[Rfam]
RNA sequence: GGCCACCCUCUGUGUGGUGAUCGAUUGUGGAGCCCUGCAAUUGAUCGCCCUACAGAGGGAGGCC
Numbered sequence: 001g002g003c004c005a006c007c008c009u010c011u012g013u014g015u016g017g018u019g020a021u022c023g024a025u026u027g028u029g030g031a032g033c034c035c036u037g038c039a040a041u042u043g044a045u046c047g048c049c050c051u052a053c054a055g056a057g058g059g060a061g062g063c064c
Stems, first nucleotide, its partner, number of pairs: 001064004006059009016049015
mir-9242 microRNA precursor family: a 64-nucleotide RNA sequence from Myotis lucifugus. Gene Ontology terms of the family: miRNA-mediated post-transcriptional gene silencing and RISC complex. A search with the family's covariance model found it, with a score of 65 bits. The base pairs follow the family's consensus structure, which was predicted with RNAalifold.